[Rfam]
RNA sequence: CCGUCCGCCUCGUGAUCGUCUUCUCAGCCAUCGCGUGCGGGCGUGAACACCGGAAGGCCCCCAGGAGGACGUGACUCCCGGGGGCCUUCG
Numbered sequence: 001c002c003g004u005c006c007g008c009c010u011c012g013u014g015a016u017c018g019u020c021u022u023c024u025c026a027g028c029c030a031u032c033g034c035g036u037g038c039g040g041g042c043g044u045g046a047a048c049a050c051c052g053g054a055a056g057g058c059c060c061c062c063a064g065g066a067g068g069a070c071g072u073g074a075c076u077c078c079c080g081g082g083g084g085c086c087u088u089c090g
Base pairs, nucleotide, nucleotide: 002043003042005040006039007038008037010035012034013033014032015031018028019027053089054088055087056086057085058084059083060082061081062080064078065077066076067075
RNA: sodF sRNA